Rfam assigns this 109-nucleotide RNA sequence from Caldibacillus thermoamylovorans to the family "TPP riboswitch aptamer (THI element)". Taxonomically the source falls in Caldibacillus (Bacteria, Bacillati, Caryophanales, Bacillaceae). It scores 76 bits against the family's covariance model. The family's consensus secondary structure is taken from published work.

Nucleotides: 109
Base pairs, nucleotide, nucleotide: 006097008095009094010093011060012059013058014057016054017031018030019029020028021027039053040052041051042050065090066089067088068087071084072083073082074081
Number, partner (000 for none) and nucleotide at each position: 001000a002000u003000a004000a005000g006097u007000u008095u009094g010093u011060a012059g013058g014057g015000g016054a017031a018030c019029c020028g021027g022000u023000g024000u025000u026000g027021c028020c029019g030018g031017u032000u033000g034000a035000g036000a037000g038000u039053g040052c041051g042050u043000c044000c045000g046000u047000a048000a049000g050042a051041u052040g053039c054016u055000g056000a057014c058013c059012c060011u061000u062000g063000a064000a065090c066089c067088u068087g069000a070000u071084c072083u073082g074081g075000u076000u077000a078000a079000u080000a081074c082073c083072a084071g085000c086000g087068u088067a089066g090065g091000g092000a093010a094009c095008a096000u097006a098000c099000u100000u101000u102000u103000u104000u105000g106000c107000g108000a109000u